[Rfam]
RNA sequence: GUAUUUAUAGCUCAGCAGGAUAGAGCGACCGCCUCCUAAGCGGUAGGUCGGCGGUUCGAAUCCGCCUAAGUACA
Numbered sequence: 001g002u003a004u005u006u007a008u009a010g011c012u013c014a015g016c017a018g019g020a021u022a023g024a025g026c027g028a029c030c031g032c033c034u035c036c037u038a039a040g041c042g043g044u045a046g047g048u049c050g051g052c053g054g055u056u057c058g059a060a061u062c063c064g065c066c067u068a069a070g071u072a073c074a
Stems, first nucleotide, its partner, number of pairs: 001073007010026004028044005050066005
Overview
tRNA: a 74-nucleotide RNA from Mobilisporobacter senegalensis. The source organism's lineage runs through Bacteria, Clostridia, Lachnospirales, Lachnospiraceae and Mobilisporobacter. Rfam describes the family as follows. Transfer RNA (tRNA) molecules are approximately 80 nucleotides in length. Their secondary structure includes four short double-helical elements and three loops (D, anti-codon, and T loops). Further hydrogen bonds mediate the characteristic L-shaped molecular structure. tRNAs have two regions of fundamental functional importance: the anti-codon, which is responsible for specific mRNA codon recognition, and the 3' end, to which the tRNAs corresponding amino acid is attached (by aminoacyl-tRNA synthetases). tRNAs cope with the degeneracy of the genetic code in two manners: having more than one tRNA (with a specific anti-codon) for a particular amino acid; and 'wobble' base-pairing, i.e. permitting non-standard base-pairing at the 3rd anti-codon position.